The family of this 101-nucleotide sequence from Abrus precatorius is "MIR398 microRNA precursor family". NCBI's taxonomy places the organism under Eukaryota, Embryophyta, Mesangiospermae, Fabaceae, Abrus.

[Rfam]
RNA sequence: AAAAGUUCAGCAGGGGCGACCUGAGAACACAUGAGCUGAGUAAUGUAUUCUGAACUGAGAACAAUCUUCAUGUGGUCUCAGGUCGACCCUGUAGAACCCCU
Numbered sequence: 001a002a003a004a005g006u007u008c009a010g011c012a013g014g015g016g017c018g019a020c021c022u023g024a025g026a027a028c029a030c031a032u033g034a035g036c037u038g039a040g041u042a043a044u045g046u047a048u049u050c051u052g053a054a055c056u057g058a059g060a061a062c063a064a065u066c067u068u069c070a071u072g073u074g075g076u077c078u079c080a081g082g083u084c085g086a087c088c089c090u091g092u093a094g095a096a097c098c099c100c101u
Base pairs, nucleotide, nucleotide: 007095008094011091012090013089014088017085018084019083023079024078025077026076028074029073030072031071032070